The family of this 76-nucleotide RNA from Alligator mississippiensis is "Mammalian CPEB3 ribozyme". The base pairs follow the family's consensus structure, which is taken from published work.
RNA sequence: UCAGUUUAGGAUCAGGCCACAGCAGAAGCGCUCACGCUAUAGCCUGUCAGAUUCUAACGAAUCUGUUAAUUCUGCU
Numbered sequence: 001u002c003a004g005u006u007u008a009g010g011a012u013c014a015g016g017c018c019a020c021a022g023c024a025g026a027a028g029c030g031c032u033c034a035c036g037c038u039a040u041a042g043c044c045u046g047u048c049a050g051a052u053u054c055u056a057a058c059g060a061a062u063c064u065g066u067u068a069a070u071u072c073u074g075c076u
Stems, first nucleotide, its partner, number of pairs: 015044003021076007028040001030038001048065007